[Rfam]
RNA: Actinobacteria sRNA Ms_IGR-5
RNA sequence: ACCGAAGAAGGGAGGUGGUUCGGAGCAUGUAUGCACACCGGACGUCGGAGGUGGCUGCGGGCUAGGCCCGUCACCCACCGAGUGCGGUGCCGGACCAGCGUGUACUAGAUGCACGCAGCCGGCCAAUUCAACGCAGUCACCCGACCCGCGAGCUCGCCGGUAACGUCCGGCCGGCUCCCCCGCCGCAAGGUGGAGGGACCCGAGCUCGCGGGUCGUCUGCG
Dot-bracket structure: ..............(((((..................................))))).((((.(...(((.(.(................................).)..)))...).)))).................(((((((((((((.((((((........))))))...........................)))))))))))))......